[Rfam]
RNA sequence: UUUAUUUCAUGAUUAAUACAAUGUCGACACGCAGGCGGAGAGAUCAUCCUCUCGCCUGUGUGUCAGCACUGUAUUGAACAUGAAAUUAU
Numbered sequence: 001u002u003u004a005u006u007u008c009a010u011g012a013u014u015a016a017u018a019c020a021a022u023g024u025c026g027a028c029a030c031g032c033a034g035g036c037g038g039a040g041a042g043a044u045c046a047u048c049c050u051c052u053c054g055c056c057u058g059u060g061u062g063u064c065a066g067c068a069c070u071g072u073a074u075u076g077a078a079c080a081u082g083a084a085a086u087u088a089u
Base pairs, nucleotide, nucleotide: 002088004086005085006084007083008082009081010080011079013077014076015075016074017073018072019071020070022068023067024066026064027063028062029061030060031059032058033057034056035055036054037053039052040051041050042049
This 89-nucleotide RNA sequence from Panax ginseng belongs to the Rfam family "MIR6143 microRNA precursor family". The source organism's lineage runs through Eukaryota, Streptophytina, Mesangiospermae, eudicotyledons and Panax. Pairs were carried over by alignment from the consensus structure, which was predicted with RNAalifold. Rfam links the family to the GO terms RISC complex and miRNA-mediated post-transcriptional gene silencing. Rfam's curators put it in the seed alignment.